The record is a 336-nucleotide sequence from Robbsia andropogonis, which matches "Betaproteobacteria transfer-messenger RNA" in Rfam. Rfam links the family to the GO term RNA catabolic process. On this family, see Zwieb et al., Nucleic Acids Res 2003: "tmRDB (tmRNA database)". Rfam's curators write: Bacterial tmRNA, also known as 10Sa RNA or SsrA, is named for its dual tRNA and mRNA-like properties. Its role is to liberate the mRNA from a stalled ribosome. To accomplish this part of the tmRNA is used as a reading frame that ends in a translation stop signal. The broken mRNA is replaced in the ribosome by the tmRNA and translation of the tmRNA leads to addition of a proteolysis tag to the incomplete protein enabling recognition by a protease. The family's RNA type in Rfam is non-coding RNA gene. Pairs were carried over by alignment from the consensus structure, which is taken from published work. Taxonomically the source falls in Robbsia (Bacteria, Pseudomonadati, Betaproteobacteria, Burkholderiales).
[Rfam]
RNA sequence: CGAGGGGAUGUGCAUUGGGGCAGCCGACCAUGCUACACUGCGCGCAUAGUCGUACAAAGACCGCCACGUUGGGGCGCUCCGGACGGGGGUUCGAUUCCCCCCGGCUCCACCAGAUGCCGAUGCCGAAAGACGAGGCGUCGUUAUCUGAUGGGGUCGACCUGGUUUCGACGGGGUGAGGAUACCGAAGCGGACGGCUCGAAAGGUGACGCACGUUAAGCGCACAAUCUUGUAAAUGCAAACGAUCGCAAUUACGCUGUAGCGGCCUAAUAUCCGCUUACGGAGCCUUCCCGGCUUGGCAACAGAAGAGGGACGCGGCCCCUUCGGGGGCCGUUGUUG
Numbered sequence: 001c002g003a004g005g006g007g008a009u010g011u012g013c014a015u016u017g018g019g020g021c022a023g024c025c026g027a028c029c030a031u032g033c034u035a036c037a038c039u040g041c042g043c044g045c046a047u048a049g050u051c052g053u054a055c056a057a058a059g060a061c062c063g064c065c066a067c068g069u070u071g072g073g074g075c076g077c078u079c080c081g082g083a084c085g086g087g088g089g090u091u092c093g094a095u096u097c098c099c100c101c102c103g104g105c106u107c108c109a110c111c112a113g114a115u116g117c118c119g120a121u122g123c124c125g126a127a128a129g130a131c132g133a134g135g136c137g138u139c140g141u142u143a144u145c146u147g148a149u150g151g152g153g154u155c156g157a158c159c160u161g162g163u164u165u166c167g168a169c170g171g172g173g174u175g176a177g178g179a180u181a182c183c184g185a186a187g188c189g190g191a192c193g194g195c196u197c198g199a200a201a202g203g204u205g206a207c208g209c210a211c212g213u214u215a216a217g218c219g220c221a222c223a224a225u226c227u228u229g230u231a232a233a234u235g236c237a238a239a240c241g242a243u244c245g246c247a248a249u250u251a252c253g254c255u256g257u258a259g260c261g262g263c264c265u266a267a268u269a270u271c272c273g274c275u276u277a278c279g280g281a282g283c284c285u286u287c288c289c290g291g292c293u294u295g296g297c298a299a300c301a302g303a304a305g306a307g308g309g310a311c312g313c314g315g316c317c318c319c320u321u322c323g324g325g326g327g328c329c330g331u332u333g334u335u336g
Base pairs, nucleotide, nucleotide: 048196049195050194051193052192061190063188064187068182069181075175076174077173078172079171080170081169085101086100087099088098089097102156103155104154105153106152107151108150197212198211281294282293284291286310287309288308289307313333314332315331316330318327319326320325

Its Rfam clan is "tRNA clan". It scores 139 bits against the family's covariance model.